[Rfam]
RNA sequence: CGCUUUAAAAGGCAAAACCGUUGAAAAGCGGUGACGCAAAGCUUCCGGUCUAAGGUUGUUUGCCAACGGCAAACUAAACUAUUGAUAGCGGGGCUGCAGGC
Numbered sequence: 001c002g003c004u005u006u007a008a009a010a011g012g013c014a015a016a017a018c019c020g021u022u023g024a025a026a027a028g029c030g031g032u033g034a035c036g037c038a039a040a041g042c043u044u045c046c047g048g049u050c051u052a053a054g055g056u057u058g059u060u061u062g063c064c065a066a067c068g069g070c071a072a073a074c075u076a077a078a079c080u081a082u083u084g085a086u087a088g089c090g091g092g093g094c095u096g097c098a099g100g101c
Stems, first nucleotide, its partner, number of pairs: 012037002017032006040095004045091003048086003055079003
Dot-bracket structure: ...........((...((((((....))))))...))..((((.((((((....(((...................)))....)))..)))))))......
Shown here is a 101-nucleotide RNA from Pseudidiomarina planktonica, a member of the family "c-di-GMP-I riboswitch aptamer".
The match comes from Rfam's covariance-model search (68 bits).
The organism belongs to Pseudidiomarina, within Bacteria.